[Rfam]
RNA sequence: GGGGUGUGCUUAGAACAAGGGGCUUCUCUGUUUACAGCACACCCAACAGGACUCUGGGUUAUUACCGUGAGGGGCACAAGACUUAGGGCCUCCCUAGGAGCAAAUUCCCUACAUGU
Number, nucleotide and partner (000 for none) at each position: 001g000002g044003g043004g042005u041006g040007u039008g038009c000010u000011u000012a000013g033014a032015a031016c030017a029018a000019g027020g026021g025022g000023c000024u000025u021026c020027u019028c000029u017030g016031u015032u014033u013034a000035c000036a000037g000038c008039a007040c006041a005042c004043c003044c002045a000046a000047c000048a000049g000050g000051a000052c000053u000054c000055u000056g109057g108058g107059u000060u000061a000062u000063u102064a000065c100066c000067g000068u098069g000070a000071g091072g090073g089074g000075c087076a000077c000078a084079a083080g000081a000082c000083u079084u078085a000086g000087g075088g000089c073090c072091u071092c000093c000094c000095u000096a000097g000098g068099a000100g065101c000102a063103a000104a000105u000106u000107c058108c057109c056110u000111a000112c000113a000114u000115g000116u000
This 116-nucleotide RNA sequence from Otolemur garnettii belongs to the Rfam family "Small nucleolar RNA SNORA11". By type it is an H/ACA-box small nucleolar RNA. The family has 35 seed sequences and 2,014 matches in Rfam 15.1. Rfam describes the family as follows. U107 (SNORA11) is a member of the H/ACA class of snoRNAs that guide the sites of modification of uridines to pseudouridines. This snoRNA was identified by RT-PCR from blood cells and its expression confirmed by Northern blot analysis. There is no predicted target for this guide snRNA. The base pairs follow the family's consensus structure, which was predicted with RNAalifold. The match comes from Rfam's covariance-model search (80 bits).